[Rfam]
Rfam assigns this 54-nucleotide RNA from Ewingella americana to the family "L31-Gammaproteobacteria ribosomal protein leader".
Its Rfam clan is "Ribosomal Protein L31 Leader clan".
The source organism's lineage runs through Bacteria, Pseudomonadati, Pseudomonadota, Yersiniaceae and Ewingella americana.

RNA sequence: CGCGUGGUGUCCGACGAAACAGGGUUGGAUAGCGACGCGGCCUUAAGAAGAGGU
Numbered sequence: 001c002g003c004g005u006g007g008u009g010u011c012c013g014a015c016g017a018a019a020c021a022g023g024g025u026u027g028g029a030u031a032g033c034g035a036c037g038c039g040g041c042c043u044u045a046a047g048a049a050g051a052g053g054u
Stems, first nucleotide, its partner, number of pairs: 001039005007033002011028005
Dot-bracket structure: (((((.((..(((((........)))))...)).)))))...............